[Rfam]
RNA sequence: AAUCAAGAGUGUCGACACUAGUCAGCGAAGGUUCGCCCACUAGUGCGAUAGGU
Numbered sequence: 001a002a003u004c005a006a007g008a009g010u011g012u013c014g015a016c017a018c019u020a021g022u023c024a025g026c027g028a029a030g031g032u033u034c035g036c037c038c039a040c041u042a043g044u045g046c047g048a049u050a051g052g053u
Stems, first nucleotide, its partner, number of pairs: 016045007025036004
A member of the RNA family "ffh sRNA" from Pelagibacterales bacterium SAG-MED05, 53 nucleotides long. For this family Rfam cites "Identification of candidate structured RNAs in the marine organism 'Candidatus Pelagibacter ubique'" (Meyer et al., BMC Genomics, 2009). Rfam classes the family as a small RNA.